[Rfam]
RNA: c-di-AMP riboswitch aptamer (ydaO/yuaA leader)
RNA sequence: UGAAAAGAUUGGCCGAAUUUCGCAAUGAAAACGGGGGAACCGUAUAUUUUGGGGUGAAUUUCACGGAGCUUCAACUCCCAGCAAGGGGAUAUGUUCCGCGAAUAGGGCAACUGGGCAUGUCCGAAUCCGUCAGCUAACCUCGUAGGCCUGUGCAUCAGGAACC
Numbered sequence: 001u002g003a004a005a006a007g008a009u010u011g012g013c014c015g016a017a018u019u020u021c022g023c024a025a026u027g028a029a030a031a032c033g034g035g036g037g038a039a040c041c042g043u044a045u046a047u048u049u050u051g052g053g054g055u056g057a058a059u060u061u062c063a064c065g066g067a068g069c070u071u072c073a074a075c076u077c078c079c080a081g082c083a084a085g086g087g088g089a090u091a092u093g094u095u096c097c098g099c100g101a102a103u104a105g106g107g108c109a110a111c112u113g114g115g116c117a118u119g120u121c122c123g124a125a126u127c128c129g130u131c132a133g134c135u136a137a138c139c140u141c142g143u144a145g146g147c148c149u150g151u152g153c154a155u156c157a158g159g160a161a162c163c
Stems, first nucleotide, its partner, number of pairs: 011148004018030003031143006041051002052128003060102003105122004